The record is a 63-nucleotide sequence from Mytilus coruscus, which matches "Selenocysteine insertion sequence 1" in Rfam.

[Rfam]
RNA sequence: GUAUGUUUUAUGAUGGUAUGAUACUAAACCCCUAAGGGGAGGUAUUGUGCUUGAUUUUCAUAU
Numbered sequence: 001g002u003a004u005g006u007u008u009u010a011u012g013a014u015g016g017u018a019u020g021a022u023a024c025u026a027a028a029c030c031c032c033u034a035a036g037g038g039g040a041g042g043u044a045u046u047g048u049g050c051u052u053g054a055u056u057u058u059c060a061u062a063u
Stems, first nucleotide, its partner, number of pairs: 001063005015051010030039003
Rfam's curators write: The incorporation of selenocysteine into a protein sequence is directed by an in-frame UGA codon (usually a stop codon) within the coding region of the mRNA. Selenoprotein mRNAs contain a conserved secondary structure in the 3' UTR that is required for the distinction of UGA stop from UGA selenocysteine. The selenocysteine insertion sequence (SECIS) is around 60 nt in length and adopts a hairpin structure which is sufficiently well-defined and conserved to act as a computational screen for selenoprotein genes. Lineage of the source: Eukaryota > Opisthokonta > Bivalvia > Mytiloidea > Mytilus.